[Rfam]
RNA sequence: GGUCCGUUCGUCUAGGGGUUAGGACGCAAGGUUUUCAUCCUUGUAACAGGGGUUCGAUUCCCCUACGGACUA
Numbered sequence: 001g002g003u004c005c006g007u008u009c010g011u012c013u014a015g016g017g018g019u020u021a022g023g024a025c026g027c028a029a030g031g032u033u034u035u036c037a038u039c040c041u042u043g044u045a046a047c048a049g050g051g052g053u054u055c056g057a058u059u060c061c062c063c064u065a066c067g068g069a070c071u072a
Stems, first nucleotide, its partner, number of pairs: 001071007010025004027043005048064005
A member of the RNA family "tRNA" from Capnocytophaga ochracea, 72 nucleotides long. A search with the family's covariance model found it, with a score of 61 bits. Its family is annotated with triplet codon-amino acid adaptor activity in the Gene Ontology.